The family of this 80-nucleotide RNA sequence from Romanomermis culicivorax is "mir-87 microRNA precursor family".
For this family Rfam cites "Temporal regulation of microRNA expression in Drosophila melanogaster mediated by hormonal signals and broad-Complex gene activity" (Sempere et al., Dev Biol, 2003).
The family's consensus secondary structure was predicted with RNAalifold.
The source organism's lineage runs through Eukaryota, Bilateria, Nematoda, Dorylaimia and Romanomermis.
Gene Ontology terms of the family: miRNA-mediated post-transcriptional gene silencing and RISC complex.
[Rfam]
RNA sequence: CUCUUGUCGCCUGAAACGUUGUCUCAACCUUGGAUUUUCUAUUAUUGAUUAGGUGAGCAAAGUUUCAGGUGUGGAAGUGA
Numbered sequence: 001c002u003c004u005u006g007u008c009g010c011c012u013g014a015a016a017c018g019u020u021g022u023c024u025c026a027a028c029c030u031u032g033g034a035u036u037u038u039c040u041a042u043u044a045u046u047g048a049u050u051a052g053g054u055g056a057g058c059a060a061a062g063u064u065u066c067a068g069g070u071g072u073g074g075a076a077g078u079g080a
Stems, first nucleotide, its partner, number of pairs: 003077003007073001008071007016063002019060002023057004028053003